[Rfam]
RNA: S10-Clostridia ribosomal protein leader
Organism: Sarcina sp. DSM 11001
RNA sequence: UGAUAGCUGUGAAGCGUGAGGUUGCUGCGGAGCUUCCGCAGGUUUUCCGUGGAGCGAAUGUCUGGAGCACUCUUCAUGAGCCAUUUGGAGAGCGGCUCGCAAAUCUGACGACAA
Numbered sequence: 001u002g003a004u005a006g007c008u009g010u011g012a013a014g015c016g017u018g019a020g021g022u023u024g025c026u027g028c029g030g031a032g033c034u035u036c037c038g039c040a041g042g043u044u045u046u047c048c049g050u051g052g053a054g055c056g057a058a059u060g061u062c063u064g065g066a067g068c069a070c071u072c073u074u075c076a077u078g079a080g081c082c083a084u085u086u087g088g089a090g091a092g093c094g095g096c097u098c099g100c101a102a103a104u105c106u107g108a109c110g111a112c113a114a
Stems, first nucleotide, its partner, number of pairs: 014050003018047004025041005059113004065109001